[Rfam]
RNA: Archaeal large subunit ribosomal RNA, nucleotides 589 to 687
Organism: Aeropyrum pernix
RNA sequence: GGUGCGGCCCGAAAGGGGUGAAACCCCCGAAGGAAACCCGGGCGACCGGGGAGUACGAGGGGGCUGGACCGGGGUCGCACCGUCCGUCUUGAAACACGG
Numbered sequence: 001g002g003u004g005c006g007g008c009c010c011g012a013a014a015g016g017g018g019u020g021a022a023a024c025c026c027c028c029g030a031a032g033g034a035a036a037c038c039c040g041g042g043c044g045a046c047c048g049g050g051g052a053g054u055a056c057g058a059g060g061g062g063g064c065u066g067g068a069c070c071g072g073g074g075u076c077g078c079a080c081c082g083u084c085c086g087u088c089u090u091g092a093a094a095c096a097c098g099g
Stems, first nucleotide, its partner, number of pairs: 001081010015070002022065001024063005032056001037050005084099004